The record is a 204-nucleotide sequence from Oryza barthii, which matches "MIR812 microRNA precursor family" in Rfam. The family has 22 seed sequences and 57,451 matches in Rfam 15.1. The match comes from Rfam's covariance-model search (92 bits).
RNA sequence: UAUAAGGGAUUUUGAGUUUUUGUUUGUAAUGUUUGACCACUUGUCUUAUUCAAAAUUUUUUGAAAUCAUUAUUUAUUUUAUUUGUGACUUACUCUAUUAUCUACAGUACUUCAAGCACCACUUUUCGUUUUUUAUAUUUGUAAAAAAAAUUUGAAUAAGACGAGUGGUCAAAUGUUGCAAACAAAAACUCAAAAUGCCUUUAUA
Numbered sequence: 001u002a003u004a005a006g007g008g009a010u011u012u013u014g015a016g017u018u019u020u021u022g023u024u025u026g027u028a029a030u031g032u033u034u035g036a037c038c039a040c041u042u043g044u045c046u047u048a049u050u051c052a053a054a055a056u057u058u059u060u061u062g063a064a065a066u067c068a069u070u071a072u073u074u075a076u077u078u079u080a081u082u083u084g085u086g087a088c089u090u091a092c093u094c095u096a097u098u099a100u101c102u103a104c105a106g107u108a109c110u111u112c113a114a115g116c117a118c119c120a121c122u123u124u125u126c127g128u129u130u131u132u133u134a135u136a137u138u139u140g141u142a143a144a145a146a147a148a149a150u151u152u153g154a155a156u157a158a159g160a161c162g163a164g165u166g167g168u169c170a171a172a173u174g175u176u177g178c179a180a181a182c183a184a185a186a187a188c189u190c191a192a193a194a195u196g197c198c199u200u201u202a203u204a
Base pairs, nucleotide, nucleotide: 025179026178027177028176029175030174032172033171034170035169036168037167038166039165040164041163042162043161044160045159046158047157048156049155

Its family is annotated with RISC complex and miRNA-mediated post-transcriptional gene silencing in the Gene Ontology. Pairs were carried over by alignment from the consensus structure, which was predicted with RNAalifold. Taxonomically the source falls in Oryza (Eukaryota, Viridiplantae, Streptophyta, Oryzoideae).